The family of this 128-nucleotide sequence is "Small nucleolar RNA snoR77". Rfam classes the family as an H/ACA-box small nucleolar RNA. It scores 108 bits against the family's covariance model. Rfam links the family to the GO terms RNA processing and nucleolus.
[Rfam]
RNA sequence: AGGCAACCCUCUUCUAACAAAAAAAACUGGGAAGGGAGGUGUUUAUCUGCUCAUAAAUCAAUUUACUUUUGCUCUUCAGACUUGCUGAUUCUUUUUCAUGAAGCUGGUCUAGUAAGCACAAGUACAUC
Numbered sequence: 001a002g003g004c005a006a007c008c009c010u011c012u013u014c015u016a017a018c019a020a021a022a023a024a025a026a027c028u029g030g031g032a033a034g035g036g037a038g039g040u041g042u043u044u045a046u047c048u049g050c051u052c053a054u055a056a057a058u059c060a061a062u063u064u065a066c067u068u069u070u071g072c073u074c075u076u077c078a079g080a081c082u083u084g085c086u087g088a089u090u091c092u093u094u095u096u097c098a099u100g101a102a103g104c105u106g107g108u109c110u111a112g113u114a115a116g117c118a119c120a121a122g123u124a125c126a127u128c
Stems, first nucleotide, its partner, number of pairs: 002043004007039002009036007017028001066122003071117003078110005084104003